[Rfam]
RNA: MIR8565 microRNA precursor family
RNA sequence: CCCACACCCAUGUGUGUAUGACCCCAAAAGAUCACCAUUACAUUUGGCACAGAUAUCUAGAAAAGUUAUCACAUGUGUGUGAGACUUUAUUUUUUUAGAGAUCUGUGUCAAAUUUAAUGGUGUGAUUAUUUGGGGUCCUAUACACAUGGGUGUGGG
Numbered sequence: 001c002c003c004a005c006a007c008c009c010a011u012g013u014g015u016g017u018a019u020g021a022c023c024c025c026a027a028a029a030g031a032u033c034a035c036c037a038u039u040a041c042a043u044u045u046g047g048c049a050c051a052g053a054u055a056u057c058u059a060g061a062a063a064a065g066u067u068a069u070c071a072c073a074u075g076u077g078u079g080u081g082a083g084a085c086u087u088u089a090u091u092u093u094u095u096u097a098g099a100g101a102u103c104u105g106u107g108u109c110a111a112a113u114u115u116a117a118u119g120g121u122g123u124g125a126u127u128a129u130u131u132g133g134g135g136u137c138c139u140a141u142a143c144a145c146a147u148g149g150g151u152g153u154g155g156g
Base pairs, nucleotide, nucleotide: 002155003154004153005152006151007150008149009148010147011146012145013144015142016141017140018139020137021136022135023134024133025132026131027130028129030127031126032125034121035120036119037118038117039116040115042113043112044111045110046109047108048107049106050105051104052103053102054101056099057098058097059096060095061094062093063092064091065090066089068087069082070081071080072079073078